The record is a 54-nucleotide RNA sequence from Salmo salar, which matches "UnaL2 LINE 3' element" in Rfam. The source organism's lineage runs through Eukaryota, Gnathostomata, Actinopteri, Teleostei and Salmo. The family has 30 seed sequences and 493,311 matches in Rfam 15.1.
[Rfam]
RNA sequence: UGCAUUCACUACUGUAAGUCGCUCUGGCUAAGAGCGUCUGCUAAAUGUAUAUAG
Numbered sequence: 001u002g003c004a005u006u007c008a009c010u011a012c013u014g015u016a017a018g019u020c021g022c023u024c025u026g027g028c029u030a031a032g033a034g035c036g037u038c039u040g041c042u043a044a045a046u047g048u049a050u051a052u053a054g
Base pairs, nucleotide, nucleotide: 013043014041015040016039020036021035022034023033024032025031